Background
This 277-nucleotide RNA from Coniochaeta pulveracea belongs to the Rfam family "Fungal signal recognition particle RNA". It scores 154 bits against the family's covariance model. Lineage of the source: Eukaryota > Ascomycota > leotiomyceta > Sordariomycetes > Coniochaeta. A reference for the family is Batey et al. (2000), "Crystal structure of the ribonucleoprotein core of the signal recognition particle", Science.

[Rfam]
Nucleotides: 277
Base pairs, nucleotide, nucleotide: 002014003013004012018274019273020272021271029267030266031265032264034262035261037258038257039256043255044254045253046252047251048250049249051247052246053245054244055243056242073237074236076233077232079230081228082227083226084225086220087219088218089217090216091215092214093213095210096209097208098207100205101204102203103202105147107145108144109143111142112141113140114139116134117133118132119131120130122129123128148152156201157200158199159198160197161196162195167192168191169190174185175184176183
Number, partner (000 for none) and nucleotide at each position: 001000c002014g003013g004012c005000u006000g007000u008000a009000a010000u011000g012004g013003u014002c015000a016000u017000c018274c019273g020272g021271g022000u023000a024000a025000a026000g027000a028000a029267g030266g031265c032264g033000c034262u035261u036000g037258a038257u039256u040000u041000u042000c043255u044254c045253c046252c047251u048250u049249c050000a051247g052246g053245a054244u055243u056242c057000c058000a059000a060000a061000u062000c063000c064000g065000u066000c067000a068000g069000a070000u071000c072000c073237c074236c075000c076233c077232a078000c079230u080000c081228g082227u083226c084225g085000c086220c087219c088218a089217g090216u091215g092214c093213g094000a095210a096209c097208g098207c099000c100205g101204c102203g103202g104000u105147g106000g107145c108144c109143c110000a111142c112141u113140c114139a115000c116134u117133c118132g119131c120130u121000c122129g123128g124000g125000a126000a127000g128123c129122c130120a131119g132118c133117g134116a135000c136000c137000g138000c139114u140113g141112a142111g143109g144108g145107g146000c147105c148152c149000u150000a151000a152148g153000c154000a155000a156201u157200g158199a159198a160197g161196g162195u163000g164000a165000c166000a167192c168191u169190u170000g171000a172000g173000g174185g175184a176183g177000g178000u179000u180000c181000c182000a183176c184175u185174c186000u187000g188000c189000a190169g191168a192167g193000g194000c195162a196161u197160c198159u199158u200157c201156a202103c203102c204101g205100u206000c207098g208097c209096g210095u211000g212000g213093c214092g215091c216090g217089c218088u219087g220086g221000a222000u223000u224000a225084c226083g227082a228081u229000c230079g231000a232077u233076g234000g235000g236074g237073g238000c239000u240000u241000g242056g243055g244054a245053u246052u247051c248000g249049g250048a251047g252046g253045g254044g255043a256039g257038a258037u259000a260000g261035a262034g263000a264032u265031g266030c267029c268000a269000a270000c271021u272020c273019c274018g275000u276000u277000u